Background
A member of the RNA family "Potassium channel RNA editing signal" from Oncorhynchus mykiss, 114 nucleotides long. Pairs were carried over by alignment from the consensus structure, which is taken from published work. This family represents a group of sequences related to the human potassium channel Kv1.1 hairpin element which directs the efficient modification of an adenosine to inosine by an adenosine deaminase acting on RNA (ADAR). The ADAR modification causes an isoleucine/valine recoding event which lies in the ion-conducting pore of the potassium channel.

[Rfam]
RNA sequence: CUUGGCUACGGCGACAUGUACCCCCAGACGUGGUCUGGCAUGCUUGUCGGCGCGCUGUGCGCCCUGUCGGGUGUACUGACCAUCGCCAUGCCCGUCCCCGUGAUCGUCAACAAC
Numbered sequence: 001c002u003u004g005g006c007u008a009c010g011g012c013g014a015c016a017u018g019u020a021c022c023c024c025c026a027g028a029c030g031u032g033g034u035c036u037g038g039c040a041u042g043c044u045u046g047u048c049g050g051c052g053c054g055c056u057g058u059g060c061g062c063c064c065u066g067u068c069g070g071g072u073g074u075a076c077u078g079a080c081c082a083u084c085g086c087c088a089u090g091c092c093c094g095u096c097c098c099c100g101u102g103a104u105c106g107u108c109a110a111c112a113a114c
Base pairs, nucleotide, nucleotide: 002113004111008107009106010105011104014101015100018097020095021094037077038076040074049063050062051061